[Rfam]
RNA sequence: UUCUUAUCAAGAGAGGUGGAGGGACUGGCCCUAUGAUGCCCGGCAACCUGAAUGUAUUUACAUUCAAUGGUGCUAAUUCCAGCAGGUAAUAUAACCUGAAAGAUGAGAG
Dot-bracket structure: ((((((((....(.(((...(((.[[[[)))......))))((((.((((((..........))))..))))))...(]]]](((((......)))))..)))))))))

The family of this 109-nucleotide sequence from Clostridium kluyveri is "SAM riboswitch aptamer (S box leader)". Pairs were carried over by alignment from the consensus structure, which is taken from published work. The organism belongs to Clostridium kluyveri, within Bacteria. Gene Ontology term of the family: regulation of gene expression. Its Rfam clan is "SAM clan". About the family: The SAM riboswitch is found upstream of a number of genes which code for proteins involved in methionine or cysteine biosynthesis in Gram-positive bacteria.